[Rfam]
RNA sequence: GGCUUUCUUCGCGAGGGAGCUCGACCCUCGACUGCCACGCUCGUAGCGUUUAUCACAGAUUAUCAGAACCGGUUCGGGGUCGAGCCGAUCUGUGCCGUGCUGACCGAGUUCGGCCUGAAGAUCGCCCCG
Dot-bracket structure: ............(((((.......))))).............................................(((((......((.(((...........................))).)))))))

The family of this 129-nucleotide RNA from Kribbella caucasensis is "ALIL pseudoknot". A search with the family's covariance model found it, with a score of 52 bits.